[Rfam]
RNA sequence: GUCGUAUAAAAAUGUAUUAGAUGCAAGACAAUCUAGCAUUUCCCUUUACGGCAUUAUACUAAAUUUAGAAGUUCAAACAACAAUAAUUGUUGUGUGGUCAAGAAUCGAAACAAUUUGAGUUUGAACGGAAGAGGUUAACCGUAUGACCUUGUGUUGAAAAACACUAAAAAUAAUCUCGAAUGAUGAUUUUUAAAAUUUCGUUAUUUUGAGUUACGGUCCG
Numbered sequence: 001g002u003c004g005u006a007u008a009a010a011a012a013u014g015u016a017u018u019a020g021a022u023g024c025a026a027g028a029c030a031a032u033c034u035a036g037c038a039u040u041u042c043c044c045u046u047u048a049c050g051g052c053a054u055u056a057u058a059c060u061a062a063a064u065u066u067a068g069a070a071g072u073u074c075a076a077a078c079a080a081c082a083a084u085a086a087u088u089g090u091u092g093u094g095u096g097g098u099c100a101a102g103a104a105u106c107g108a109a110a111c112a113a114u115u116u117g118a119g120u121u122u123g124a125a126c127g128g129a130a131g132a133g134g135u136u137a138a139c140c141g142u143a144u145g146a147c148c149u150u151g152u153g154u155u156g157a158a159a160a161a162c163a164c165u166a167a168a169a170a171u172a173a174u175c176u177c178g179a180a181u182g183a184u185g186a187u188u189u190u191u192a193a194a195a196u197u198u199c200g201u202u203a204u205u206u207u208g209a210g211u212u213a214c215g216g217u218c219c220g
Stems, first nucleotide, its partner, number of pairs: 001052006008045001010041006018035005023029001071126008085115007096106002132149005138217006144170001151164005175210006181203005